This 197-nucleotide RNA from Blautia luti belongs to the Rfam family "Group II catalytic intron D1-D4-3".
Pairs were carried over by alignment from the consensus structure.
Taxonomically the source falls in Blautia (Bacteria, Bacillati, Bacillota, Clostridia).
RNA sequence: UCCAUCGUGAGAUGGAAUCUGAAGGAAGCUGGAUGUGAGGAACAUACUAACUCACGGGCAAAUCUCUGGUCUGACGAACAGAAAUCUCAUAUGAGGUCAUGCAUGAGGGUAAGAUUGCAGCACAAAUUGAAGCUCAAUAACUACACGGAAUCAUGUAUGAUAAAUGAGGCAGAUGGAUGGAGAGGAAGAAACGUGUG
Numbered sequence: 001u002c003c004a005u006c007g008u009g010a011g012a013u014g015g016a017a018u019c020u021g022a023a024g025g026a027a028g029c030u031g032g033a034u035g036u037g038a039g040g041a042a043c044a045u046a047c048u049a050a051c052u053c054a055c056g057g058g059c060a061a062a063u064c065u066c067u068g069g070u071c072u073g074a075c076g077a078a079c080a081g082a083a084a085u086c087u088c089a090u091a092u093g094a095g096g097u098c099a100u101g102c103a104u105g106a107g108g109g110u111a112a113g114a115u116u117g118c119a120g121c122a123c124a125a126a127u128u129g130a131a132g133c134u135c136a137a138u139a140a141c142u143a144c145a146c147g148g149a150a151u152c153a154u155g156u157a158u159g160a161u162a163a164a165u166g167a168g169g170c171a172g173a174u175g176g177a178u179g180g181a182g183a184g185g186a187a188g189a190a191a192c193g194u195g196u197g
Base pairs, nucleotide, nucleotide: 001016002015003014004013005012006011051197053195054194055193059188063183064182065181066180067179068178069174070173071172072171073170085169086168087167088166089165090164096161097160098159100157101156102155103154104153105152106151107135108134109133110132113128114127115126116125